[Rfam]
RNA: c-di-AMP riboswitch aptamer (ydaO/yuaA leader)
Organism: Bacillus sp. FJAT-26390
RNA sequence: GGUUACAAUUUACUGAAUCCUGCACCAGCAGGAACGGGGGAACCAACGAAGCAUAAGGCGUGUAAGCACGCUUGUUGCUUCAUGGGGUGAAUCGCUUGGCAGCAGCCAGGCGUAGGGCAACUCUCAGGCCCGAAUCCGACAGCUAACCUCGUAAGUGUACUCGAGAGGGGCA
Numbered sequence: 001g002g003u004u005a006c007a008a009u010u011u012a013c014u015g016a017a018u019c020c021u022g023c024a025c026c027a028g029c030a031g032g033a034a035c036g037g038g039g040g041a042a043c044c045a046a047c048g049a050a051g052c053a054u055a056a057g058g059c060g061u062g063u064a065a066g067c068a069c070g071c072u073u074g075u076u077g078c079u080u081c082a083u084g085g086g087g088u089g090a091a092u093c094g095c096u097u098g099g100c101a102g103c104a105g106c107c108a109g110g111c112g113u114a115g116g117g118c119a120a121c122u123c124u125c126a127g128g129c130c131c132g133a134a135u136c137c138g139a140c141a142g143c144u145a146a147c148c149u150c151g152u153a154a155g156u157g158u159a160c161u162c163g164a165g166a167g168g169g170g171c172a
Stems, first nucleotide, its partner, number of pairs: 011157004018033005034152006044084002085137003093112006115131004